[Rfam]
RNA sequence: UCCGGCCGGUCAGGAGAGAGUUCCCGUGCGGAACCGCCGAAGGCGCAGGCCCCCUCAUCGCAAGGGGCCGAACGCUCAGGCACCCAGGACUGACAAAGCGCU
Numbered sequence: 001u002c003c004g005g006c007c008g009g010u011c012a013g014g015a016g017a018g019a020g021u022u023c024c025c026g027u028g029c030g031g032a033a034c035c036g037c038c039g040a041a042g043g044c045g046c047a048g049g050c051c052c053c054c055u056c057a058u059c060g061c062a063a064g065g066g067g068c069c070g071a072a073c074g075c076u077c078a079g080g081c082a083c084c085c086a087g088g089a090c091u092g093a094c095a096a097a098g099c100g101c102u
Stems, first nucleotide, its partner, number of pairs: 009094005020034004036081003039077002043075003049068005
The record is a 102-nucleotide RNA from Haliea sp., which matches "Glycine riboswitch aptamer" in Rfam.
The source organism's lineage runs through Bacteria, Pseudomonadati, Gammaproteobacteria, Cellvibrionales and Haliea.
Rfam links the family to the GO term glycine biosynthetic process.